Lysine riboswitch aptamer: a 177-nucleotide RNA sequence from Shewanella algae. Pairs were carried over by alignment from the consensus structure, which is taken from published work.
[Rfam]
RNA sequence: AGGAACAGAAGAGGUGCGUUAACUAGGUAGUGAGUCAGAGGAGGCCAAUUCUCCAAUGACGGCUCAUGAGGGAGAUUAACGCCGAGGUCGGGAUGCGUAUUGGCUAUGCUUCCGGUCGGUUGGUCAGGCUGAAUCCUGGCGACUGUCACCUGGUUUUGGUGGAGAGCUUCUGGUGAC
Numbered sequence: 001a002g003g004a005a006c007a008g009a010a011g012a013g014g015u016g017c018g019u020u021a022a023c024u025a026g027g028u029a030g031u032g033a034g035u036c037a038g039a040g041g042a043g044g045c046c047a048a049u050u051c052u053c054c055a056a057u058g059a060c061g062g063c064u065c066a067u068g069a070g071g072g073a074g075a076u077u078a079a080c081g082c083c084g085a086g087g088u089c090g091g092g093a094u095g096c097g098u099a100u101u102g103g104c105u106a107u108g109c110u111u112c113c114g115g116u117c118g119g120u121u122g123g124u125c126a127g128g129c130u131g132a133a134u135c136c137u138g139g140c141g142a143c144u145g146u147c148a149c150c151u152g153g154u155u156u157u158g159g160u161g162g163a164g165a166g167c168u169u170c171u172g173g174u175g176a177c
Base pairs, nucleotide, nucleotide: 006172007171008170009169010168011167016082017081018080019079020078021077022076024074030067031066032065033064034063035062036061086117087116088115089114090113091112092111093110095109096108097107098106118144119143120142121141123140124139125138126137127136128135146162147161148160149159150158